[Rfam]
RNA sequence: AUAGGCUUCGGCGACAUGGUUCCCAAGACAUAUCUCGGCAUGCUAGUUGGGUCGGUCUGCGCUUUGAUGGGCGUUUUGACCAUCGCGCUACCGGUUCCCGUCAUCGUAUCCAAC
Numbered sequence: 001a002u003a004g005g006c007u008u009c010g011g012c013g014a015c016a017u018g019g020u021u022c023c024c025a026a027g028a029c030a031u032a033u034c035u036c037g038g039c040a041u042g043c044u045a046g047u048u049g050g051g052u053c054g055g056u057c058u059g060c061g062c063u064u065u066g067a068u069g070g071g072c073g074u075u076u077u078g079a080c081c082a083u084c085g086c087g088c089u090a091c092c093g094g095u096u097c098c099c100g101u102c103a104u105c106g107u108a109u110c111c112a113a114c
Stems, first nucleotide, its partner, number of pairs: 002113001004111002007108001009106003013102003018097002021094001037077002040074001049063002
Annotation: The record is a 114-nucleotide RNA sequence from Steinernema carpocapsae, which matches "Potassium channel RNA editing signal" in Rfam. About the family: This family represents a group of sequences related to the human potassium channel Kv1.1 hairpin element which directs the efficient modification of an adenosine to inosine by an adenosine deaminase acting on RNA (ADAR). The ADAR modification causes an isoleucine/valine recoding event which lies in the ion-conducting pore of the potassium channel. It is thought that this editing event targets the process of fast inactivation and allows a more rapid recovery from inactivation at negative potentials.